[Rfam]
A member of the RNA family "U8 small nucleolar RNA" from Synaphobranchus kaupii, 135 nucleotides long. A reference for the family is Peculis (1997), "The sequence of the 5' end of the U8 small nucleolar RNA is critical for 5.8S and 28S rRNA maturation", Mol Cell Biol. Pairs were carried over by alignment from the consensus structure, which is taken from published work. It is annotated as a C/D-box small nucleolar RNA. A search with the family's covariance model found it, with a score of 84 bits.

RNA sequence: UCGUCGGUGAGGUACAUCCUUACCUGUUACUUCAGAAAUGAAGUUUCAGAAAAUGAUGAAUGGAUUUUAUGAGAUGCUGAUUAUAGUUUCUCUGGGUUUAGAGGAACUGCAACACCUCUUUACCCCCAUUCUGAU
Numbered sequence: 001u002c003g004u005c006g007g008u009g010a011g012g013u014a015c016a017u018c019c020u021u022a023c024c025u026g027u028u029a030c031u032u033c034a035g036a037a038a039u040g041a042a043g044u045u046u047c048a049g050a051a052a053a054u055g056a057u058g059a060a061u062g063g064a065u066u067u068u069a070u071g072a073g074a075u076g077c078u079g080a081u082u083a084u085a086g087u088u089u090c091u092c093u094g095g096g097u098u099u100a101g102a103g104g105a106a107c108u109g110c111a112a113c114a115c116c117u118c119u120u121u122a123c124c125c126c127c128a129u130u131c132u133g134a135u
Stems, first nucleotide, its partner, number of pairs: 024049003029044005071092002074089001076087001078083001096124001098122001100120002103117002
Dot-bracket structure: .......................(((..(((((......)))))..))).....................((.(.(.(....)...).).))...(.(.((.((...........)).)).).)...........